This 76-nucleotide sequence belongs to the Rfam family "COG2827 RNA".
RNA sequence: GCUGGUGCUGAAGAUAGAUGACAGGUUAGCCUGGGCGGUAGUGACGUGAUUGCAAGGCGUUAUUACCGUUUACAUA
Numbered sequence: 001g002c003u004g005g006u007g008c009u010g011a012a013g014a015u016a017g018a019u020g021a022c023a024g025g026u027u028a029g030c031c032u033g034g035g036c037g038g039u040a041g042u043g044a045c046g047u048g049a050u051u052g053c054a055a056g057g058c059g060u061u062a063u064u065a066c067c068g069u070u071u072a073c074a075u076a
Stems, first nucleotide, its partner, number of pairs: 022033004034070014

It is annotated as a small RNA.